[Rfam]
Nucleotides: 084
Stems, first nucleotide, its partner, number of pairs: 002083006
Number, partner (000 for none) and nucleotide at each position: 001000u002083g003082u004081g005080g006079u007078g008000g009000a010000u011000g012000a013000u014000g015000a016000g017000a018000u019000c020000a021000a022000a023000u024000a025000a026000a027000u028000u029000c030000a031000c032000a033000g034000u035000u036000a037000u038000c039000c040000c041000u042000g043000u044000c045000u046000g047000a048000g049000a050000u051000a052000a053000u054000a055000u056000c057000u058000g059000c060000u061000g062000a063000c064000a065000a066000u067000u068000u069000g070000u071000g072000a073000u074000c075000u076000g077000a078007c079006a080005c081004u082003a083002c084000c
Small nucleolar RNA R38: an 84-nucleotide RNA sequence from Daucus carota. Rfam links the family to the GO terms nucleolus and RNA processing. It scores 61 bits against the family's covariance model. The organism belongs to Daucus carota, within Eukaryota. Rfam's curators write: snoR38 is a C/D box small nucleolar RNA conserved across yeast, human, Arabidopsis and rice. The literature on the family includes a 1995 paper in Trends Biochem Sci by Bachellerie et al., "Antisense snoRNAs: a family of nucleolar RNAs with long complementarities to rRNA".